[Rfam]
RNA: ZMP/ZTP riboswitch aptamer (pfl RNA motif)
Organism: Paenibacillus cremeus
RNA sequence: ACAACCGCGCGCAACUGGCGAUAAAAGUGGGCAACCACAGGGGAGCGUGCGGCAUAACCGCCGGUCGCCUGGGCAAAGUAU
Dot-bracket structure: ....((((((((..(([[[[[.....((((....))))..))..)))))))).......(((..]]]]]..))).......